[Rfam]
A member of the RNA family "ODC internal ribosome entry site (IRES)" from Nannospalax galili, 121 nucleotides long. The family has 13 seed sequences and 437 matches in Rfam 15.1. Its family is annotated with ribosome binding in the Gene Ontology.
RNA sequence: AACAUUGCUGCUGCUUCCAGGAGACAAGAUUCAGAGUUCCUGGAGAACUGCCUUUGUGAGAAGCUAGAAAUCCAUUUCUUUAAUACCAUCUCUAAGUUUUCCAUAGGCACACCAAGAAACC
Numbered sequence: 001a002a003c004a005u006u007g008c009u010g011c012u013g014c015u016u017c018c019a020g021g022a023g024a025c026a027a028g029a030u031u032c033a034g035a036g037u038u039c040c041u042g043g044a045g046a047a048c049u050g051c052c053u054u055u056g057u058g059a060g061a062a063g064c065u066a067g068a069a070a071u072c073c074a075u076u077u078c079u080u081u082a083a084u085a086c087c088a089u090c091u092c093u094a095a096g097u098u099u100u101c102c103a104u105a106g107g108c109a110c111a112c113c114a115a116g117a118a119a120c121c
Stems, first nucleotide, its partner, number of pairs: 005068002010064003014060003017056001019054003024049001026041001028039002075119006084109001086107002